[Rfam]
RNA sequence: UUCUGGAGGGGAGAAGUUAUGGCGAUUAUGAGAAUUUGAAACCAUAAGCGUAUAGCUUUUCCCCUUUGGCG
Numbered sequence: 001u002u003c004u005g006g007a008g009g010g011g012a013g014a015a016g017u018u019a020u021g022g023c024g025a026u027u028a029u030g031a032g033a034a035u036u037u038g039a040a041a042c043c044a045u046a047a048g049c050g051u052a053u054a055g056c057u058u059u060u061c062c063c064c065u066u067u068g069g070c071g
Base pairs, nucleotide, nucleotide: 003069004068005067006066007065009063010062011061013059014058017055018054019053020052021051026047027046028045029044030043
The family of this 71-nucleotide sequence is "mir-965 microRNA precursor family". The literature on the family includes a 2012 paper in Bioorg Khim by Huang et al., "The regulation of silkworm fibroin L chain production by miRNA-965 and miRNA-1926 in insect cells". The match comes from Rfam's covariance-model search (65 bits).